[Rfam]
RNA sequence: GGUUUUUACCCAGUUAACCAAGGUUAGCAUUAAAUUUCGACCUUUCGCAAGAACGCGUUGAAAUGCAAAUCAAUUUUUGGAACCGCUUCUUCGGGGAAUCCGUUGAGGCAAA
Numbered sequence: 001g002g003u004u005u006u007u008a009c010c011c012a013g014u015u016a017a018c019c020a021a022g023g024u025u026a027g028c029a030u031u032a033a034a035u036u037u038c039g040a041c042c043u044u045u046c047g048c049a050a051g052a053a054c055g056c057g058u059u060g061a062a063a064u065g066c067a068a069a070u071c072a073a074u075u076u077u078u079g080g081a082a083c084c085g086c087u088u089c090u091u092c093g094g095g096g097a098a099u100c101c102g103u104u105g106a107g108g109c110a111a112a
Stems, first nucleotide, its partner, number of pairs: 008035001013028002016025003038060004042055001044053003087110001089108006095101002
SL2 RNA: a 112-nucleotide RNA sequence from Caenorhabditis elegans. Taxonomically the source falls in Caenorhabditis (Eukaryota, Eumetazoa, Ecdysozoa, Peloderinae). The sequence is in the family's curated seed alignment. Its family is annotated with mRNA trans splicing, via spliceosome in the Gene Ontology. This family represents SL2 RNA. SL2 RNA is involved in trans splicing in lower eukaryotes.